[Rfam]
RNA sequence: CAUAUUUUCGUCCUUCUCUUCCCAGUUCUUCCCGGAGUCGGGAAAAGCUGUGUUGAGAGGGUGAAAAAAAAAGAAA
Numbered sequence: 001c002a003u004a005u006u007u008u009c010g011u012c013c014u015u016c017u018c019u020u021c022c023c024a025g026u027u028c029u030u031c032c033c034g035g036a037g038u039c040g041g042g043a044a045a046a047g048c049u050g051u052g053u054u055g056a057g058a059g060g061g062u063g064a065a066a067a068a069a070a071a072a073g074a075a076a
Stems, first nucleotide, its partner, number of pairs: 014059005021052001023050003029044006
Dot-bracket structure: .............(((((..(.(((...((((((....))))))...))).)..))))).................